[Rfam]
Nucleotides: 445
Base pairs, nucleotide, nucleotide: 015039016038017037018036019035024029040433041432043430044429045428046427047426048425049422050421051420052419053418055411056410057409058408059407060406061405062404063403064187065186068183069182070181071180077174078173079172081169082168085165086164087163088162093158094157095156096155097154098153099152100151101150104147105146106145107144108143109142110141111140434438
Number, partner (000 for none) and nucleotide at each position: 001000a002000a003000g004000u005000c006000g007000g008000c009000a010000a011000g012000u013000c014000a015039g016038a017037u018036c019035c020000g021000u022000a023000a024029c025000u026000u027000c028000g029024g030000g031000a032000u033000a034000a035019g036018g037017a038016u039015u040433g041432g042000c043430u044429c045428u046427a047426a048425g049422g050421g051420c052419u053418g054000g055411g056410c057409c058408g059407g060406u061405c062404g063403g064187g065186c066000u067000g068183g069182g070181g071180u072000g073000c074000g075000a076000a077174g078173c079172g080000g081169g082168g083000c084000u085165g086164g087163g088162c089000a090000c091000g092000u093158g094157c095156c096155g097154c098153g099152g100151c101150u102000g103000g104147g105146g106145g107144a108143g109142c110141g111140g112000c113000c114000g115000c116000c117000c118000c119000g120000c121000u122000g123000c124000c125000c126000g127000c128000c129000c130000u131000c132000u133000c134000c135000c136000g137000c138000c139000a140111c141110c142109g143108u144107u145106u146105c147104c148000g149000a150101g151100g152099c153098c154097g155096c156095g157094g158093c159000c160000c161000g162088g163087c164086c165085c166000c167000c168082u169081c170000g171000g172079c173078g174077c175000u176000c177000g178000u179000g180071a181070c182069c183068c184000c185000c186065g187064c188000g189000a190000g191000g192000g193000g194000g195000c196000u197000g198000c199000g200000g201000g202000a203000g204000g205000c206000c207000g208000g209000g210000g211000g212000g213000u214000g215000u216000c217000c218000g219000c220000g221000g222000c223000c224000g225000c226000g227000g228000c229000g230000g231000a232000g233000g234000g235000c236000g237000g238000u239000c240000c241000g242000g243000c244000g245000g246000a247000g248000g249000g250000g251000g252000g253000c254000u255000g256000c257000g258000g259000c260000a261000g262000c263000g264000g265000u266000g267000c268000g269000c270000g271000g272000c273000g274000g275000c276000g277000a278000c279000u280000c281000u282000g283000g284000a285000c286000g287000c288000g289000c290000g291000c292000c293000g294000g295000g296000c297000c298000c299000u300000u301000c302000u303000c304000g305000c306000g307000g308000a309000u310000c311000u312000c313000c314000c315000c316000a317000g318000c319000u320000a321000c322000g323000g324000c325000c326000c327000g328000c329000g330000u331000c332000g333000g334000g335000c336000c337000c338000u339000c340000c341000g342000u343000u344000c345000c346000g347000u348000c349000c350000c351000c352000g353000u354000c355000u356000c357000c358000c359000u360000c361000g362000c363000g364000g365000g366000g367000g368000g369000c370000g371000g372000g373000u374000c375000g376000g377000g378000g379000c380000g381000g382000g383000g384000g385000u386000c387000c388000c389000c390000c391000c392000g393000g394000c395000g396000c397000g398000g399000c400000g401000c402000c403063u404062c405061g406060g407059c408058c409057g410056g411055c412000g413000c414000c415000u416000a417000g418053c419052a420051g421050c422049c423000g424000g425048c426047u427046u428045a429044g430043a431000a432041c433040u434438g435000g436000u437000g438434c439000g440000g441000a442000c443000c444000a445000g